A member of the RNA family "speF leader" from Phyllobacterium zundukense, 145 nucleotides long. The literature on the family includes a 2012 paper in RNA Biol by del Val et al., "A survey of sRNA families in alpha-proteobacteria". Lineage of the source: Bacteria > Pseudomonadati > Alphaproteobacteria > Phyllobacteriaceae > Phyllobacterium. It is annotated as a cis-regulatory leader. It scores 110 bits against the family's covariance model. Rfam's curators write: This family is a putative regulatory RNA structure that is found upstream of the speF gene encoding ornithine decarboxylase in Agrobacterium tumefaciens and other alpha-proteobacteria.
RNA sequence: UUCCGGCUGUCCAUAAGCCGGGAUUACUGAAGAGGCACACCUUCAUUGCCGGUAGUGCGGAUGGGUUCAUCCAAACCAAGGCAGACAAAGCGGAUUUACGCUGGCUUUAGCGUCGAUCCACCGCCGCAUGAAUCUUUCCCGUGGU
Number, nucleotide and partner (000 for none) at each position: 001u023002u022003c021004c020005g019006g018007c017008u016009g000010u000011c000012c000013a000014u000015a000016a008017g007018c006019c005020g004021g003022g002023a001024u000025u000026a000027c000028u000029g000030a000031a000032g000033a000034g050035g049036c048037a047038c000039a000040c000041c000042u000043u000044c000045a000046u000047u037048g036049c035050c034051g000052g000053u000054a000055g000056u000057g124058c123059g122060g000061a000062u000063g000064g000065g000066u000067u000068c000069a000070u000071c000072c000073a000074a000075a000076c084077c000078a000079a000080g000081g000082c000083a000084g076085a000086c000087a000088a000089a000090g000091c000092g000093g107094a106095u000096u104097u103098a000099c000100g000101c000102u000103g097104g096105c000106u094107u093108u000109a000110g000111c000112g000113u000114c000115g000116a000117u000118c000119c000120a000121c000122c059123g058124c057125c000126g000127c000128a000129u000130g000131a000132a000133u000134c000135u000136u000137u000138c000139c000140c000141g000142u000143g000144g000145u000